[Rfam]
Nucleotides: 097
Stems, first nucleotide, its partner, number of pairs: 001079010015068002022063006031055001036049005083096003
Number, partner (000 for none) and nucleotide at each position: 001079g002078u003077u004076g005075c006074g007073g008072c009071a010070u011000g012000a013000a014000a015068g016067g017000a018000u019000c020000u021000u022063c023062c024061u025060u026059a027058u028000g029000a030000a031055g032000g033000a034000a035000c036049c037048c038047g039046u040045c041000g042000c043000g044000a045040g046039g047038c048037g049036g050000u051000a052000g053000u054000a055031c056000g057000g058027g059026u060025a061024a062023g063022g064000u065000u066000g067016c068015c069000a070010g071009u072008g073007u074006c075005g076004c077003a078002a079001c080000g081000u082000a083096c084095g085094u086000u087000u088000u089000g090000a091000a092000g093000a094085a095084c096083g097000g
The record is a 97-nucleotide part of an RNA from Methanoregula boonei, which matches "Archaeal large subunit ribosomal RNA" in Rfam. Rfam 15.1 lists 2,955 matches to the family in 1,139 species. Rfam links the family to the GO terms ribosome and structural constituent of ribosome. The base pairs follow the family's consensus structure, which is taken from published work. Rfam's curators put it in the seed alignment.